Rfam assigns this 59-nucleotide sequence from Betacoronavirus rousetti to the family "Coronavirus 3' UTR pseudoknot".
Coronaviruses are plus-strand RNA viruses with ~30kb genomes.
Rfam links the family to the GO term viral genome replication.
Pairs were carried over by alignment from the consensus structure, which is taken from published work.
A reference for the family is Williams et al. (1999), "A phylogenetically conserved hairpin-type 3' untranslated region pseudoknot functions in coronavirus RNA replication", J Virol.
[Rfam]
RNA sequence: CUACUCUUAUACAGAAUGGAAUCCUAGUGUACAGUGGUAUAAGUAAGCUGUGCAUUCGC
Numbered sequence: 001c002u003a004c005u006c007u008u009a010u011a012c013a014g015a016a017u018g019g020a021a022u023c024c025u026a027g028u029g030u031a032c033a034g035u036g037g038u039a040u041a042a043g044u045a046a047g048c049u050g051u052g053c054a055u056u057c058g059c
Stems, first nucleotide, its partner, number of pairs: 007042006028054008